[Rfam]
RNA sequence: CCUAUGCGCCAGCAGCAAUGGCUUGUGGUUCCAAUUCAACUUGAAAGAGACUGCUUGCUUAUAAAGCUUGGCUAGAAUAAAAUUCUAUCGUAUAUCCGUAGCGUUUUAAAUGUGUACAUAACCGACAUUUGGCGUAUGAACUGAAGAGACAAAUCU
Numbered sequence: 001c002c003u004a005u006g007c008g009c010c011a012g013c014a015g016c017a018a019u020g021g022c023u024u025g026u027g028g029u030u031c032c033a034a035u036u037c038a039a040c041u042u043g044a045a046a047g048a049g050a051c052u053g054c055u056u057g058c059u060u061a062u063a064a065a066g067c068u069u070g071g072c073u074a075g076a077a078u079a080a081a082a083u084u085c086u087a088u089c090g091u092a093u094a095u096c097c098g099u100a101g102c103g104u105u106u107u108a109a110a111u112g113u114g115u116a117c118a119u120a121a122c123c124g125a126c127a128u129u130u131g132g133c134g135u136a137u138g139a140a141c142u143g144a145a146g147a148g149a150c151a152a153a154u155c156u
Stems, first nucleotide, its partner, number of pairs: 005074002008072004012067002025054005103150003112141001116137001118135002122132004

Background:
A member of the RNA family "Small nucleolar RNA psi28S-2876" from Drosophila willistoni, 156 nucleotides long. Taxonomically the source falls in Sophophora (Eukaryota, Bilateria, Muscomorpha, Acalyptratae). About the family: psi28S-2876 is a member of the H/ACA class of snoRNA. This family is responsible for guiding the modification of uridines 2876 and 2956 to pseudouridine in Drosophila 28S rRNA. It is annotated as an H/ACA-box small nucleolar RNA. Rfam links the family to the GO terms nucleolus and RNA processing. The family's consensus secondary structure was predicted with PFOLD.